[Rfam]
RNA sequence: AAUCCACUCACUGGAUGCAGCGAUUUAUCGAUUUUUUCUUGAACUUUGUUUUGAAUGAUCACACAAGUCAUGAACUAAUCGAUAAACCUCUGCAUCCGGUGCUCACUUU
Dot-bracket structure: ............(((..(((.(.((.(((((((..(((.................................)))..))))))).)).).)))..)))............
MIR162_1 microRNA precursor family: a 109-nucleotide sequence from Cicer arietinum. Its family is annotated with RISC complex and miRNA-mediated post-transcriptional gene silencing in the Gene Ontology. NCBI's taxonomy places the organism under Eukaryota, eudicotyledons, Pentapetalae, Cicereae, Cicer. A search with the family's covariance model found it, with a score of 83 bits. The base pairs follow the family's consensus structure, which was predicted with RNAalifold.